RNA sequence: ACCCAUAAAGUAGAAAGCACUACUAACAGCACUGGAGGGUGUAGUGUUUCCUACUUUAUGGAUG
Numbered sequence: 001a002c003c004c005a006u007a008a009a010g011u012a013g014a015a016a017g018c019a020c021u022a023c024u025a026a027c028a029g030c031a032c033u034g035g036a037g038g039g040u041g042u043a044g045u046g047u048u049u050c051c052u053a054c055u056u057u058a059u060g061g062a063u064g
Base pairs, nucleotide, nucleotide: 004060005059006058007057008056009055010054011053012052013051016048017047018046019045020044021043022042023041
Source information:
The family of this 64-nucleotide RNA from Mus musculus is "mir-142 microRNA precursor family". NCBI's taxonomy places the organism under Eukaryota, Eumetazoa, Teleostomi, Muridae, Mus. Its family is annotated with miRNA-mediated post-transcriptional gene silencing and RISC complex in the Gene Ontology. It is one of the family's seed sequences.